MIR6217 microRNA precursor family: a 224-nucleotide sequence from Miscanthus lutarioriparius. The family's consensus secondary structure was predicted with RNAalifold. It scores 136 bits against the family's covariance model.

RNA sequence: UGGCUACAAAAUAACUUAUUAUAUAGCCACUUUGAGUAACGAUAAUUACUAUGUUAAUUUACGAGAUUAUAGUAACUUCAUACUAAGUGGUUUACUCUAACGUUAUGGUAAAUAUCUCCAUGUGUUAUAUUAACCCAAUUAUCGUAAAUAUGUAUUGACAUUAUCAUAAAUUAGUAUAUAAAAUUAUCGUAAAUGGAGGUGGCUACGGAAUAACUGAGUAAUCU
Numbered sequence: 001u002g003g004c005u006a007c008a009a010a011a012u013a014a015c016u017u018a019u020u021a022u023a024u025a026g027c028c029a030c031u032u033u034g035a036g037u038a039a040c041g042a043u044a045a046u047u048a049c050u051a052u053g054u055u056a057a058u059u060u061a062c063g064a065g066a067u068u069a070u071a072g073u074a075a076c077u078u079c080a081u082a083c084u085a086a087g088u089g090g091u092u093u094a095c096u097c098u099a100a101c102g103u104u105a106u107g108g109u110a111a112a113u114a115u116c117u118c119c120a121u122g123u124g125u126u127a128u129a130u131u132a133a134c135c136c137a138a139u140u141a142u143c144g145u146a147a148a149u150a151u152g153u154a155u156u157g158a159c160a161u162u163a164u165c166a167u168a169a170a171u172u173a174g175u176a177u178a179u180a181a182a183a184u185u186a187u188c189g190u191a192a193a194u195g196g197a198g199g200u201g202g203c204u205a206c207g208g209a210a211u212a213a214c215u216g217a218g219u220a221a222u223c224u
Stems, first nucleotide, its partner, number of pairs: 002223002005220003012217001014215001016213005022207001024205010037192001039190009050178012065165003069161002074155001081146003087142006093132002096129001098127006107117002